[Rfam]
RNA: SAH (S-adenosyl-L-homocysteine) riboswitch aptamer
RNA sequence: CAGGCCGAGAGGCGCUGCAACGGACGGUUCGACUCCGUCCGCCACGCUCGGCCUGAUCCACUCCAUGCAAGGGCGCCUCCUAUUU
Numbered sequence: 001c002a003g004g005c006c007g008a009g010a011g012g013c014g015c016u017g018c019a020a021c022g023g024a025c026g027g028u029u030c031g032a033c034u035c036c037g038u039c040c041g042c043c044a045c046g047c048u049c050g051g052c053c054u055g056a057u058c059c060a061c062u063c064c065a066u067g068c069a070a071g072g073g074c075g076c077c078u079c080c081u082a083u084u085u
Base pairs, nucleotide, nucleotide: 002054003053004052005051006050007049008048021041022040023039024038025037026036